[Rfam]
RNA: Nematode sRNA ceN72-3_ceN74-2
Organism: Oesophagostomum dentatum
RNA sequence: CAUGCGGUCCGGCGUCAGUGGGUUAUCAGUACUUUGCAAUUCCGCAAGGAAAAGCAAGUCCGCAAGGACACCCCGCCCGCAAGGGCACCCUUCCCAUUGGCAUCACUUGACCACAGCAU
Numbered sequence: 001c002a003u004g005c006g007g008u009c010c011g012g013c014g015u016c017a018g019u020g021g022g023u024u025a026u027c028a029g030u031a032c033u034u035u036g037c038a039a040u041u042c043c044g045c046a047a048g049g050a051a052a053a054g055c056a057a058g059u060c061c062g063c064a065a066g067g068a069c070a071c072c073c074c075g076c077c078c079g080c081a082a083g084g085g086c087a088c089c090c091u092u093c094c095c096a097u098u099g100g101c102a103u104c105a106c107u108u109g110a111c112c113a114c115a116g117c118a119u
Stems, first nucleotide, its partner, number of pairs: 002119003006112004011104002014101009032049006075086004